[Rfam]
RNA sequence: CGUUUGAGGUUAGACUAGCUGGUCAGUAAUCAAUCUUGGUUUCGACCAUGAUGCACUUGCUGGCCUUUGGCUAGCCAACGACAGUUUUUUCUGUAGGAAAAAAUGUGCAGGAAUGUGGCUCUUCGGAGUGUUAUAGCCUGCUAUAGAAUACUACGGAAGAGACUGAGGCUCGCAGCGAACGCUAUUAUGGCGAGGAUCAGGUUAACUUUGUGAUAAUGUGUGCUACUACUCAGCUUGCUGCGGUAAUGCAUGUUGUUGUUUGGUAUUGGCUUGUUUACCUUUAGUUCGCUUGGGUCGUUGGCUUAAUGACCUUAAAUGACCCGUCUUGAAACACGG
Numbered sequence: 001c002g003u004u005u006g007a008g009g010u011u012a013g014a015c016u017a018g019c020u021g022g023u024c025a026g027u028a029a030u031c032a033a034u035c036u037u038g039g040u041u042u043c044g045a046c047c048a049u050g051a052u053g054c055a056c057u058u059g060c061u062g063g064c065c066u067u068u069g070g071c072u073a074g075c076c077a078a079c080g081a082c083a084g085u086u087u088u089u090u091c092u093g094u095a096g097g098a099a100a101a102a103a104u105g106u107g108c109a110g111g112a113a114u115g116u117g118g119c120u121c122u123u124c125g126g127a128g129u130g131u132u133a134u135a136g137c138c139u140g141c142u143a144u145a146g147a148a149u150a151c152u153a154c155g156g157a158a159g160a161g162a163c164u165g166a167g168g169c170u171c172g173c174a175g176c177g178a179a180c181g182c183u184a185u186u187a188u189g190g191c192g193a194g195g196a197u198c199a200g201g202u203u204a205a206c207u208u209u210g211u212g213a214u215a216a217u218g219u220g221u222g223c224u225a226c227u228a229c230u231c232a233g234c235u236u237g238c239u240g241c242g243g244u245a246a247u248g249c250a251u252g253u254u255g256u257u258g259u260u261u262g263g264u265a266u267u268g269g270c271u272u273g274u275u276u277a278c279c280u281u282u283a284g285u286u287c288g289c290u291u292g293g294g295u296c297g298u299u300g301g302c303u304u305a306a307u308g309a310c311c312u313u314a315a316a317u318g319a320c321c322c323g324u325c326u327u328g329a330a331a332c333a334c335g336g
Base pairs, nucleotide, nucleotide: 001318002317003316004315005314006313007312008311009310010309011308012307017072018071019070020069021068022067076300077299078298079297080296081295082294321336322335323334324333
Dot-bracket structure: ((((((((((((....((((((............................................))))))...(((((((...................................................................................................................................................................................................................)))))))......))))))))))))..((((........))))

A member of the RNA family "Eukaryotic large subunit ribosomal RNA" from Phycomyces blakesleeanus, 336 nucleotides of a longer RNA.